[Rfam]
The record is an 85-nucleotide RNA from Symbiodinium natans, which matches "mir-1781 microRNA precursor family" in Rfam. It scores 70 bits against the family's covariance model. The source organism's lineage runs through Eukaryota, Sar, Dinophyceae, Symbiodiniaceae and Symbiodinium.
RNA sequence: CAAAGACCUUGCCCAGCAACAAAAUGACCUUGCCCAGUAAAAUUUUUACUGGGCAAGGUCAUAUUGUUACUGGGCAAGGUCUUUU
Numbered sequence: 001c002a003a004a005g006a007c008c009u010u011g012c013c014c015a016g017c018a019a020c021a022a023a024a025u026g027a028c029c030u031u032g033c034c035c036a037g038u039a040a041a042a043u044u045u046u047u048a049c050u051g052g053g054c055a056a057g058g059u060c061a062u063a064u065u066g067u068u069a070c071u072g073g074g075c076a077a078g079g080u081c082u083u084u085u
Base pairs, nucleotide, nucleotide: 002084003083004082005081006080007079008078009077010076011075012074013073014072015071016070018068019067020066021065022064024062025061026060027059028058029057030056031055032054033053034052035051